A member of the RNA family "PyrD leader" from Pluralibacter gergoviae, 72 nucleotides long. NCBI's taxonomy places the organism under Bacteria, Pseudomonadati, Enterobacterales, Enterobacteriaceae, Pluralibacter. For this family Rfam cites "Conformational heterogeneity in the Salmonella typhimurium pyrC and pyrD leader mRNAs produced in vivo" (Sorensen, Nucleic Acids Res, 1994). The family's consensus secondary structure is taken from published work.

RNA sequence: AUUCCCUUUCGCCGCCCGAUCGAACAUAAUACGGCCCCGGUUUGCCACCGGGAAUCAGGAGAGUUCAUGUAC
Numbered sequence: 001a002u003u004c005c006c007u008u009u010c011g012c013c014g015c016c017c018g019a020u021c022g023a024a025c026a027u028a029a030u031a032c033g034g035c036c037c038c039g040g041u042u043u044g045c046c047a048c049c050g051g052g053a054a055u056c057a058g059g060a061g062a063g064u065u066c067a068u069g070u071a072c
Stems, first nucleotide, its partner, number of pairs: 036052006